[Rfam]
RNA sequence: AGCUCCACCGGAUCGACGGCACGGGUCACCAUCAGAUAGUCGCGCAGCACGAUCUCGUGCCGGUUCUC
Numbered sequence: 001a002g003c004u005c006c007a008c009c010g011g012a013u014c015g016a017c018g019g020c021a022c023g024g025g026u027c028a029c030c031a032u033c034a035g036a037u038a039g040u041c042g043c044g045c046a047g048c049a050c051g052a053u054c055u056c057g058u059g060c061c062g063g064u065u066c067u068c
Stems, first nucleotide, its partner, number of pairs: 004063002008059001011030001013028001015027003035056002038053001040052003044048001

The record is a 68-nucleotide RNA sequence from Nocardia aurantia, which matches "ASdes TB sRNA" in Rfam. The match comes from Rfam's covariance-model search (81 bits). The family's consensus secondary structure is taken from published work. Lineage of the source: Bacteria > Bacillati > Actinomycetes > Nocardiaceae > Nocardia.